[Rfam]
RNA: RAGATH-18 RNA
RNA sequence: CCUUUGGAGCAUUAUAUCAAACAGGAGUAGCUGGUUUUAAAGCGAAACUGGAUGCGAUGAAUUAGGAA
Number, nucleotide and partner (000 for none) at each position: 001c066002c065003u064004u000005u000006g000007g000008a000009g055010c054011a053012u052013u051014a000015u000016a000017u000018c000019a000020a000021a000022c050023a049024g048025g000026a000027g000028u000029a000030g043031c042032u041033g000034g000035u000036u000037u000038u000039a000040a000041a032042g031043c030044g000045a000046a000047a000048c024049u023050g022051g013052a012053u011054g010055c009056g000057a000058u000059g000060a000061a000062u000063u000064a003065g002066g001067a000068a000